Rfam assigns this 76-nucleotide RNA sequence from Faecalibacterium sp. CAG:82 to the family "c-di-GMP-I riboswitch aptamer". The base pairs follow the family's consensus structure, which is taken from published work. Rfam links the family to the GO term cyclic-di-GMP binding.

RNA sequence: UUGAAUAUUUAGCAAAAUGACCGAAAGGUUAUGACGCAAAGCUAUAGGGCCUGUAAAAUGGCAGCCAGUUGCACCU
Numbered sequence: 001u002u003g004a005a006u007a008u009u010u011a012g013c014a015a016a017a018u019g020a021c022c023g024a025a026a027g028g029u030u031a032u033g034a035c036g037c038a039a040a041g042c043u044a045u046a047g048g049g050c051c052u053g054u055a056a057a058a059u060g061g062c063a064g065c066c067a068g069u070u071g072c073a074c075c076u
Stems, first nucleotide, its partner, number of pairs: 012037002017032006040070004047066002049062003